[Rfam]
RNA sequence: CAACUCUGGAAAGCAGUCCGGGAAACCGGGCUCACCGACGGUGCAAGUGGCGCCUGCGAACAGCAGGCAACGCGGAAACUCUCAGGUCCAAUACAGAGCGGGGAGG
Dot-bracket structure: (..(((((......((((..........)))).(((((..(.(...................................).))).)))......)))))..).....
The family of this 106-nucleotide sequence from Arthrobacter sp. KBS0703 is "Glycine riboswitch aptamer". Its family is annotated with glycine biosynthetic process in the Gene Ontology. From the family's description: This family represents the bacterial glycine riboswitch.